[Rfam]
RNA sequence: CGCCAAAGGGGAAAAGCUAUACGCUUAUGGUUUAAUUUCUCAUAAUCGUUAUAGCCUUUCCCCUGUGGAA
Number, nucleotide and partner (000 for none) at each position: 001c000002g000003c068004c067005a066006a000007a064008g000009g062010g061011g060012a000013a058014a057015a000016g000017c054018u053019a052020u051021a050022c000023g000024c000025u045026u044027a043028u042029g041030g000031u000032u000033u000034a000035a000036u000037u000038u000039c000040u000041c029042a028043u027044a026045a025046u000047c000048g000049u000050u021051a020052u019053a018054g017055c000056c000057u014058u013059u000060c011061c010062c009063c000064u007065g000066u005067g004068g003069a000070a000
RNA: mir-965 microRNA precursor family